This 97-nucleotide RNA sequence from Eubacterium aggregans belongs to the Rfam family "Purine riboswitch aptamer".
The match comes from Rfam's covariance-model search (60 bits).
The organism belongs to Eubacterium, within Bacteria.
[Rfam]
RNA sequence: UGAAUAUCGAAUUAUCUUGCUUAUAUAUACCCGUAAUCUGGUCGGGUGUUUCUACCAACUACCGUAAUAGUUGACUAUAAGCUAUGGCCACGGUAUG
Numbered sequence: 001u002g003a004a005u006a007u008c009g010a011a012u013u014a015u016c017u018u019g020c021u022u023a024u025a026u027a028u029a030c031c032c033g034u035a036a037u038c039u040g041g042u043c044g045g046g047u048g049u050u051u052c053u054a055c056c057a058a059c060u061a062c063c064g065u066a067a068u069a070g071u072u073g074a075c076u077a078u079a080a081g082c083u084a085u086g087g088c089c090a091c092g093g094u095a096u097g
Stems, first nucleotide, its partner, number of pairs: 019082007030046004056073006